[Rfam]
RNA sequence: UUAAGCUUCGGCUUGUUGCAUAGGACCGGAAAGGUACUAUCUACCCUAACUCUUGUAGUUAGACUCUCUAAACGAACUUUAAAACUGGUUGUGUCCUUCAGUAGUCUGUAUGGCCAUUGGAGGCACACCGGUAAUUAUCAAAUACUAAGAAGAUUCAUAGUACAUCCUUGUCUAGCUUUUGGUUGGCAGUGAGCCUACGGUUUCGUCCGUGUCGCUCACAAUUAUCCACACAGUAGGUUUCGUCCGCUGUGGUUGAGUUGCUAGUCCGUUGCUGUUUCGUCAGCCAUCUACAACUCGACA
Numbered sequence: 001u002u003a004a005g006c007u008u009c010g011g012c013u014u015g016u017u018g019c020a021u022a023g024g025a026c027c028g029g030a031a032a033g034g035u036a037c038u039a040u041c042u043a044c045c046c047u048a049a050c051u052c053u054u055g056u057a058g059u060u061a062g063a064c065u066c067u068c069u070a071a072a073c074g075a076a077c078u079u080u081a082a083a084a085c086u087g088g089u090u091g092u093g094u095c096c097u098u099c100a101g102u103a104g105u106c107u108g109u110a111u112g113g114c115c116a117u118u119g120g121a122g123g124c125a126c127a128c129c130g131g132u133a134a135u136u137a138u139c140a141a142a143u144a145c146u147a148a149g150a151a152g153a154u155u156c157a158u159a160g161u162a163c164a165u166c167c168u169u170g171u172c173u174a175g176c177u178u179u180u181g182g183u184u185g186g187c188a189g190u191g192a193g194c195c196u197a198c199g200g201u202u203u204c205g206u207c208c209g210u211g212u213c214g215c216u217c218a219c220a221a222u223u224a225u226c227c228a229c230a231c232a233g234u235a236g237g238u239u240u241c242g243u244c245c246g247c248u249g250u251g252g253u254u255g256a257g258u259u260g261c262u263a264g265u266c267c268g269u270u271g272c273u274g275u276u277u278c279g280u281c282a283g284c285c286a287u288c289u290a291c292a293a294c295u296c297g298a299c300a
Base pairs, nucleotide, nucleotide: 007030008029009028010027012024013023014022015021016020047061048060049059050058051057086130087129088128089127092125093124094123098120099119100118101117102116104114105113106112175187176186196211197210198209199208200207229251230250231249232248233247234246236245237244
RNA: Betacoronavirus 5'UTR